[Rfam]
Nucleotides: 189
Base pairs, nucleotide, nucleotide: 056134057133059132061131062130063129064128065127066126069123070122076117077116078115079114102111103110104109
Number, partner (000 for none) and nucleotide at each position: 001000a002000g003000u004000c005000g006000u007000a008000u009000c010000g011000a012000u013000u014000c015000g016000a017000u018000u019000g020000g021000g022000a023000u024000a025000g026000u027000c028000a029000u030000c031000a032000a033000a034000u035000a036000a037000a038000u039000u040000a041000g042000a043000a044000a045000a046000c047000c048000c049000g050000a051000g052000a053000a054000g055000a056134c057133u058000u059132c060000u061131u062130u063129u064128g065127u066126u067000a068000a069123u070122g071000g072000c073000g074000g075000g076117c077116c078115a079114c080000a081000u082000a083000a084000a085000u086000u087000g088000c089000a090000u091000u092000u093000a094000g095000c096000g097000a098000c099000u100000a101000a102111g103110c104109c105000g106000c107000a108000a109104g110103g111102u112000c113000a114079g115078u116077g117076g118000a119000u120000u121000a122070c123069a124000a125000a126066g127065a128064c129063g130062a131061g132059g133057a134056g135000c136000u137000c138000u139000c140000u141000u142000a143000u144000c145000a146000u147000u148000g149000a150000u151000a152000c153000u154000c155000g156000g157000a158000c159000u160000u161000u162000u163000c164000a165000u166000c167000a168000c169000a170000u171000c172000a173000u174000c175000g176000a177000u178000a179000c180000g181000a182000c183000u184000u185000u186000c187000c188000a189000u

Rfam assigns this 189-nucleotide RNA sequence from Prevotella veroralis to the family "Bacteroidales-1 6S-Bacteroidales RNA suggested". By type it is a small RNA. The base pairs follow the family's consensus structure, which is taken from published work. For this family Rfam cites "A high-resolution transcriptome map identifies small RNA regulation of metabolism in the gut microbe Bacteroides thetaiotaomicron" (Ryan et al., Nat Commun, 2020). Bacteroidales-1 was first reported in a comparative genomics-based approach of genome and metagenome sequences from Weinberg et al. 2010 In a high-resolution transcriptome map study of Bacteroides thetaiotaomicron, Ryan et al. 2020 report this sRNA as 6S RNA homologue of Bacteroides, in the study they obtain evidence of small product RNAs (pRNAs) related to 6S function.